A member of the RNA family "Histone 3' UTR stem-loop" from Dromaius novaehollandiae, 46 nucleotides long.
A search with the family's covariance model found it, with a score of 37 bits.
The mRNAs of metazoan histone genes lack a poly-A tail. 3' end processing occurs at a site between a highly conserved stem-loop (modelled by this family) and a purine rich region around 20 nts downstream (the histone downstream element, or HDE). The stem-loop is bound by a 31 kDa stem-loop binding protein (SLBP - also termed the histone hairpin binding protein, or HBP).
NCBI's taxonomy places the organism under Eukaryota, Bilateria, Teleostomi, Amniota, Dromaius.

[Rfam]
RNA sequence: CCAAAGGCUCUUUUAAGAGCCACCACAUUGGCAUGAGAAAGAGCUG
Numbered sequence: 001c002c003a004a005a006g007g008c009u010c011u012u013u014u015a016a017g018a019g020c021c022a023c024c025a026c027a028u029u030g031g032c033a034u035g036a037g038a039a040a041g042a043g044c045u046g
Base pairs, nucleotide, nucleotide: 006021007020008019009018010017011016